[Rfam]
RNA: U5 spliceosomal RNA
Organism: Helianthus annuus
RNA sequence: AGCCAUGCAAUGAGCACAAAGCGAACUAUUCUUUCGCCUUUUACUAAAGAAUACCGUGUGCUCGUUGCUCUAAAAUGGCAUACGCCUAUUUUUGGAGAGUCCCAUUCUUUAUUGUAUGGGCU
Numbered sequence: 001a002g003c004c005a006u007g008c009a010a011u012g013a014g015c016a017c018a019a020a021g022c023g024a025a026c027u028a029u030u031c032u033u034u035c036g037c038c039u040u041u042u043a044c045u046a047a048a049g050a051a052u053a054c055c056g057u058g059u060g061c062u063c064g065u066u067g068c069u070c071u072a073a074a075a076u077g078g079c080a081u082a083c084g085c086c087u088a089u090u091u092u093u094g095g096a097g098a099g100u101c102c103c104a105u106u107c108u109u110u111a112u113u114g115u116a117u118g119g120g121c122u
Stems, first nucleotide, its partner, number of pairs: 003078004008067011027053008096122001101120005